[Rfam]
RNA: Rhodo-rpoB RNA
Organism: Gemmobacter fulvus
RNA sequence: GGUUCGGGAGCGGCCCUUCGGGACGGGCUGCAUGAAUGGAACCUUCCCCCUGAUCGCCAAGCGGCGCGCACCCGUACCCCGACGGGCUGUGUG
Numbered sequence: 001g002g003u004u005c006g007g008g009a010g011c012g013g014c015c016c017u018u019c020g021g022g023a024c025g026g027g028c029u030g031c032a033u034g035a036a037u038g039g040a041a042c043c044u045u046c047c048c049c050c051u052g053a054u055c056g057c058c059a060a061g062c063g064g065c066g067c068g069c070a071c072c073c074g075u076a077c078c079c080c081g082a083c084g085g086g087c088u089g090u091g092u093g
Base pairs, nucleotide, nucleotide: 001043002042003041004040005039010031011030012029013028014027015026016025065093066092067091068090069089071086072085073084074083